[Rfam]
RNA: Glycine riboswitch aptamer
RNA sequence: CGUUUCCUUGCUGGAGAGAGGCCACUGCACCCCGGUGCAACGAUGGCCCACCGAAGGAGCAAACCCCGAUCGUGGGGCGAAUCUCUCAGGUAAAGCGGACAGCAGGGGUGGC
Numbered sequence: 001c002g003u004u005u006c007c008u009u010g011c012u013g014g015a016g017a018g019a020g021g022c023c024a025c026u027g028c029a030c031c032c033c034g035g036u037g038c039a040a041c042g043a044u045g046g047c048c049c050a051c052c053g054a055a056g057g058a059g060c061a062a063a064c065c066c067c068g069a070u071c072g073u074g075g076g077g078c079g080a081a082u083c084u085c086u087c088a089g090g091u092a093a094a095g096c097g098g099a100c101a102g103c104a105g106g107g108g109u110g111g112c
Stems, first nucleotide, its partner, number of pairs: 006107008020048004050091003053087002057085003064077003